SAH (S-adenosyl-L-homocysteine) riboswitch aptamer: a 69-nucleotide RNA from Ramlibacter pinisoli.

[Rfam]
RNA sequence: CCAUCCGAGGAGCGUUGCAGCGCCGCACAGGCGUGAGGCUCGGAUUCAACGCAACGACGCUCACCCACU
Numbered sequence: 001c002c003a004u005c006c007g008a009g010g011a012g013c014g015u016u017g018c019a020g021c022g023c024c025g026c027a028c029a030g031g032c033g034u035g036a037g038g039c040u041c042g043g044a045u046u047c048a049a050c051g052c053a054a055c056g057a058c059g060c061u062c063a064c065c066c067a068c069u
Base pairs, nucleotide, nucleotide: 003045004044005043006042007041008040021033022032023031024030
A search with the family's covariance model found it, with a score of 58 bits. The organism belongs to Ramlibacter, within Bacteria. Gene Ontology terms of the family: regulation of gene expression and S-adenosylhomocysteine metabolic process.